[Rfam]
RNA: c-di-AMP riboswitch aptamer (ydaO/yuaA leader)
RNA sequence: GCUAGGCCACCGCCUAAUCGGCGCACCCGAGAUCGGGUGCCCGUGCCGGGGACCCACUUGUUACUUGGGGUGAAUCUCCUCCGGUCGCGUCAGCGGCCGAGGGGUAGGGCUGAUCUUCCCGGCCCGAACCCGUCAGCUAACUCGGUCGGCGGAUGACGGAAGAAGG
Numbered sequence: 001g002c003u004a005g006g007c008c009a010c011c012g013c014c015u016a017a018u019c020g021g022c023g024c025a026c027c028c029g030a031g032a033u034c035g036g037g038u039g040c041c042c043g044u045g046c047c048g049g050g051g052a053c054c055c056a057c058u059u060g061u062u063a064c065u066u067g068g069g070g071u072g073a074a075u076c077u078c079c080u081c082c083g084g085u086c087g088c089g090u091c092a093g094c095g096g097c098c099g100a101g102g103g104g105u106a107g108g109g110c111u112g113a114u115c116u117u118c119c120c121g122g123c124c125c126g127a128a129c130c131c132g133u134c135a136g137c138u139a140a141c142u143c144g145g146u147c148g149g150c151g152g153a154u155g156a157c158g159g160a161a162g163a164a165g166g
Base pairs, nucleotide, nucleotide: 011151012150013149014148019043020042045146046145047144048143049142050141055067056066068131069130070129076104077103078102079101080100081099107125108124109123110122